[Rfam]
RNA sequence: ACCUACGCAACGCACUCGCACGGCAGGAGCGGGGGACCCAGGUAAGUCGCCGUACCGCACGCCUCGAUGGCGCGCCGGCACGGCUAGGGGUGAAGUCACGUCGUCGUACGACGGCAUGACCGGGCAUCUCCCGCCCGAACCCGACAGCUCACCUCGCAGGCGCCGGAGAGGAACGAA
Dot-bracket structure: .((......................)).((((((....(...............................................)(((.....(((..................)))..((((.......))))...))).........))))))....................
RNA: c-di-AMP riboswitch aptamer (ydaO/yuaA leader)
Organism: Streptomyces sp. NRRL WC-3605